The family of this 94-nucleotide RNA sequence from Macleaya cordata is "Small nucleolar RNA Z221/R21b". For this family Rfam cites "The high diversity of snoRNAs in plants: identification and comparative study of 120 snoRNA genes from Oryza sativa" (Chen et al., Nucleic Acids Res, 2003). Rfam classes the family as a C/D-box small nucleolar RNA. A search with the family's covariance model found it, with a score of 57 bits.
RNA sequence: AGGCUAUGAUGAUGAAAAGUCAUGCACCACUCUGAUAUAUUUUCAUUAACAUCAGUGCUGAUAAAAACGACUACCCAAACAUAUCUCUGAGCCU
Numbered sequence: 001a002g003g004c005u006a007u008g009a010u011g012a013u014g015a016a017a018a019g020u021c022a023u024g025c026a027c028c029a030c031u032c033u034g035a036u037a038u039a040u041u042u043u044c045a046u047u048a049a050c051a052u053c054a055g056u057g058c059u060g061a062u063a064a065a066a067a068c069g070a071c072u073a074c075c076c077a078a079a080c081a082u083a084u085c086u087c088u089g090a091g092c093c094u
Base pairs, nucleotide, nucleotide: 001094002093003092004091